[Rfam]
A member of the RNA family "Small nucleolar RNA Z279/snoR105/snoR108" from Salix viminalis, 107 nucleotides long. Rfam describes the family as follows. This family includes the plant snoRNAs known as Z279, snoR105 and snoR108. Rfam classes the family as a C/D-box small nucleolar RNA. It scores 85 bits against the family's covariance model. The source organism's lineage runs through Eukaryota, Streptophytina, Magnoliopsida, Gunneridae and Salix. Gene Ontology terms of the family: RNA processing and nucleolus. On this family, see Marker et al., Curr Biol 2002: "Experimental RNomics: identification of 140 candidates for small non-messenger RNAs in the plant Arabidopsis thaliana". Rfam 15.1 lists 906 matches to the family in 223 species.

RNA sequence: GGGAUAUGAUGAGCGGUCGGUUCGCGCAAUAAAACAUGCGUGAUGGGUGUCCAACCCACUCCCUGGUUACGACAACAGGGCACUCCCAUCUCUACCUAUCUGAUCCC
Numbered sequence: 001g002g003g004a005u006a007u008g009a010u011g012a013g014c015g016g017u018c019g020g021u022u023c024g025c026g027c028a029a030u031a032a033a034a035c036a037u038g039c040g041u042g043a044u045g046g047g048u049g050u051c052c053a054a055c056c057c058a059c060u061c062c063c064u065g066g067u068u069a070c071g072a073c074a075a076c077a078g079g080g081c082a083c084u085c086c087c088a089u090c091u092c093u094a095c096c097u098a099u100c101u102g103a104u105c106c107c
Base pairs, nucleotide, nucleotide: 001107002106003105004104015097016096023042024041025040026039027038045085046084047083048082049081050080051079063078064077066076067075